[Rfam]
RNA sequence: ACGACCUUACUUGAACAGGAUCUGUUCUAUAGGCUCGUACCUCUGUAUCCUUGAGUUCCAAGGAGACAGGAAACUAAGCUUGGUUGAAGAGCUAUGGCCAAGAGACUAGAGCGUGAUUAAUAGCUUCAGACCUUCAUAGGGCUGAGCCGUAGAGGAUCGUUCUCAGCCAUGGUUUCAUGGUUGGGAUGGUCUCUUGGCUGUCUGAUAGGCU
Dot-bracket structure: (((.(((.....((((((...))))))...))).).))....((((.((((((.....)))))).))))........(((((..............((((((((((((.((((......((.(((.(((.(((....))).)))))).)).......)))).(((((((((....)))))))))..)))))))))))).......))))).
Numbered sequence: 001a002c003g004a005c006c007u008u009a010c011u012u013g014a015a016c017a018g019g020a021u022c023u024g025u026u027c028u029a030u031a032g033g034c035u036c037g038u039a040c041c042u043c044u045g046u047a048u049c050c051u052u053g054a055g056u057u058c059c060a061a062g063g064a065g066a067c068a069g070g071a072a073a074c075u076a077a078g079c080u081u082g083g084u085u086g087a088a089g090a091g092c093u094a095u096g097g098c099c100a101a102g103a104g105a106c107u108a109g110a111g112c113g114u115g116a117u118u119a120a121u122a123g124c125u126u127c128a129g130a131c132c133u134u135c136a137u138a139g140g141g142c143u144g145a146g147c148c149g150u151a152g153a154g155g156a157u158c159g160u161u162c163u164c165a166g167c168c169a170u171g172g173u174u175u176c177a178u179g180g181u182u183g184g185g186a187u188g189g190u191c192u193c194u195u196g197g198c199u200g201u202c203u204g205a206u207a208g209g210c211u
Stems, first nucleotide, its partner, number of pairs: 001038002003035001005033003013027006043069004048064006078210005097198012110161004120150002123147003127144003131140003163184009
Shown here is a 211-nucleotide RNA sequence from Ipomoea nil, a member of the family "Plant small nucleolar RNA U3". Rfam's curators write: Small nucleolar RNAs (snoRNAs) are involved in the processing and modification of rRNA in the nucleolus. There are two main classes of snoRNAs: the box C/D class, and the box H/ACA class. Lineage of the source: Eukaryota > Tracheophyta > Magnoliopsida > lamiids > Ipomoea. Rfam links the family to the GO terms RNA processing and nucleolus. A reference for the family is Marz and Stadler (2010), "Comparative analysis of eukaryotic U3 snoRNA", RNA Biol. Rfam 15.1 lists 3,759 matches to the family in 258 species. It is annotated as a C/D-box small nucleolar RNA.